[Rfam]
RNA sequence: UUACCAGCCAGGCUCCUGGCUAAAUUCCAGCUCUUAGCUGGAUUUAGUCAAAGCUUGGCUGUAAC
Numbered sequence: 001u002u003a004c005c006a007g008c009c010a011g012g013c014u015c016c017u018g019g020c021u022a023a024a025u026u027c028c029a030g031c032u033c034u035u036a037g038c039u040g041g042a043u044u045u046a047g048u049c050a051a052a053g054c055u056u057g058g059c060u061g062u063a064a065c
Base pairs, nucleotide, nucleotide: 007059008058009057011055012054013053014052017050018049019048020047021046022045023044024043027041028040029039030038031037
Dot-bracket structure: ......(((.((((..((((((((..(((((.....))))).)))))))).)))).)))......

About this RNA
This 65-nucleotide RNA from Neotoma lepida belongs to the Rfam family "mir-344 microRNA precursor family". Rfam 15.1 lists 339 matches to the family in 9 species. The family's consensus secondary structure was predicted with RNAalifold.